[Rfam]
RNA: ASpks TB sRNA
Organism: Streptomyces venezuelae
RNA sequence: CUUCAGCGUCCCCAGCCGCAGCGGCUGCCCCGGGGCGCGCCCCUGCCCGUACGUGGCGAGCAGCGCCUGCGCCUC
Numbered sequence: 001c002u003u004c005a006g007c008g009u010c011c012c013c014a015g016c017c018g019c020a021g022c023g024g025c026u027g028c029c030c031c032g033g034g035g036c037g038c039g040c041c042c043c044u045g046c047c048c049g050u051a052c053g054u055g056g057c058g059a060g061c062a063g064c065g066c067c068u069g070c071g072c073c074u075c
Stems, first nucleotide, its partner, number of pairs: 014026004031071002038065002043060002047056003